[Rfam]
U7 small nuclear RNA: a 62-nucleotide RNA from Propithecus coquereli. Animal histone pre-mRNAs are spliced by a different mechanism than nuclear pre-mRNAs and self-splicing introns. The base pairs follow the family's consensus structure, which was predicted with PFOLD. Lineage of the source: Eukaryota > Craniata > Theria > Boreoeutheria > Propithecus.

RNA sequence: AAGCAUUACAGCUCUUUUAGAAUUUGUCUACCAGGUUGUCUGGUUUUUACCAGAAGACACUC
Numbered sequence: 001a002a003g004c005a006u007u008a009c010a011g012c013u014c015u016u017u018u019a020g021a022a023u024u025u026g027u028c029u030a031c032c033a034g035g036u037u038g039u040c041u042g043g044u045u046u047u048u049a050c051c052a053g054a055a056g057a058c059a060c061u062c
Stems, first nucleotide, its partner, number of pairs: 034061003037057001039054006